[Rfam]
RNA sequence: CCGGAGCCAUUGUGGCUCCGGCCGGUUGCGCCUGCCCUCGGGCCCUCACGGAGGCGGGGGUUCCAGGGCACGAGUUCGAGGCCAGCCUGGUCCACAUUGGUUGCAGAAAAAAAUU
Numbered sequence: 001c002c003g004g005a006g007c008c009a010u011u012g013u014g015g016c017u018c019c020g021g022c023c024g025g026u027u028g029c030g031c032c033u034g035c036c037c038u039c040g041g042g043c044c045c046u047c048a049c050g051g052a053g054g055c056g057g058g059g060g061u062u063c064c065a066g067g068g069c070a071c072g073a074g075u076u077c078g079a080g081g082c083c084a085g086c087c088u089g090g091u092c093c094a095c096a097u098u099g100g101u102u103g104c105a106g107a108a109a110a111a112a113a114u115u
Stems, first nucleotide, its partner, number of pairs: 004102002007099001009097002012095004017090002020087003024083004029078002033070006040063008
The record is a 115-nucleotide RNA sequence, which matches "snaR-A sRNA" in Rfam. Small NF90/ILF3-associated RNAs (snaR) are ~120 nucleotides long and are known to interact with NF90 double-stranded RNA-binding motifs. snaR-A is abundant in human testis and has been shown to associate with ribosomes in HeLa cells. snaR-A is present in human and gorilla but not in chimpanzee. Other snaR RNAs are found in African Great Apes (including chimpanzee and bonobo). The literature on the family includes a 2007 paper in Nucleic Acids Res by Parrott and Mathews, "Novel rapidly evolving hominid RNAs bind nuclear factor 90 and display tissue-restricted distribution". The pairing is the family consensus, mapped onto this sequence. It is one of the family's seed sequences. Rfam classes the family as a small RNA.